[Rfam]
RNA sequence: AUAGCUGAAUUGUUGGCUAUACGGUUUCUUGUUAGCCCCGGUAAUCUUUCUCACUCGCCAAAGUUAAAGAAGAUUAUCGGGGUUUUCACUU
Numbered sequence: 001a002u003a004g005c006u007g008a009a010u011u012g013u014u015g016g017c018u019a020u021a022c023g024g025u026u027u028c029u030u031g032u033u034a035g036c037c038c039c040g041g042u043a044a045u046c047u048u049u050c051u052c053a054c055u056c057g058c059c060a061a062a063g064u065u066a067a068a069g070a071a072g073a074u075u076a077u078c079g080g081g082g083u084u085u086u087c088a089c090u091u
Base pairs, nucleotide, nucleotide: 001020002019003018004017005016031089032088034084035083036082037081038080039079040078041077042076043075044074045073046072047071048070

A member of the RNA family "CopA-like RNA" from Escherichia coli, 91 nucleotides long. About the family: In several groups of bacterial plasmids, antisense RNAs regulate copy number through inhibition of replication initiator protein synthesis. These RNAs are characterised by a long hairpin structure interrupted by several unpaired residues or bulged loops. In plasmid R1, the inhibitory complex between the antisense RNA (CopA) and its target mRNA (CopT) is characterised by a four-way junction structure and a side-by-side helical alignment. Rfam links the family to the GO term mRNA binding. Rfam's curators put it in the seed alignment. It is annotated as an antisense RNA. The family's consensus secondary structure was predicted with PFOLD.